This 202-nucleotide RNA from Firmicutes bacterium CAG:884 belongs to the Rfam family "T-box leader".
Pairs were carried over by alignment from the consensus structure, which is taken from published work.
The family's RNA type in Rfam is cis-regulatory leader.
The source organism's lineage runs through Bacteria, Bacillati and Bacillota.

[Rfam]
RNA sequence: UCAUCGAUUAUGAAGUGAGGAGUAAUAUUUAUUACUGGUUAAAGAGAGCUAGGAAUGGUGGGAACUAGCACUAAGUGAAAUAUGAAUAACAACACUGAAUCCCCUUUUUGAAAAUAGUAGGAAAGGGCGGGUAAAUCCGUUAUAGUAAAUGAGAUAUCAGUUAAUGAUAAGAAGAGUGGUACCGCGGUAAUACGCCUCUUUA
Numbered sequence: 001u002c003a004u005c006g007a008u009u010a011u012g013a014a015g016u017g018a019g020g021a022g023u024a025a026u027a028u029u030u031a032u033u034a035c036u037g038g039u040u041a042a043a044g045a046g047a048g049c050u051a052g053g054a055a056u057g058g059u060g061g062g063a064a065c066u067a068g069c070a071c072u073a074a075g076u077g078a079a080a081u082a083u084g085a086a087u088a089a090c091a092a093c094a095c096u097g098a099a100u101c102c103c104c105u106u107u108u109u110g111a112a113a114a115u116a117g118u119a120g121g122a123a124a125g126g127g128c129g130g131g132u133a134a135a136u137c138c139g140u141u142a143u144a145g146u147a148a149a150u151g152a153g154a155u156a157u158c159a160g161u162u163a164a165u166g167a168u169a170a171g172a173a174g175a176g177u178g179g180u181a182c183c184g185c186g187g188u189a190a191u192a193c194g195c196c197u198c199u200u201u202a
Base pairs, nucleotide, nucleotide: 007100008099015095016094017093025083026082027081028080029079030078037072038071039070048069049068050067051066052065103126104125105124106123107122108121109120128139129138130137156168157167158166159165173199174198175197176196184195185194186193
Dot-bracket structure: ......((......(((.......((((((......(((........(((((............)))))))).....)))))).........)))...))..(((((((..........))))))).(((......)))................((((.....))))....((((.......(((......)))))))...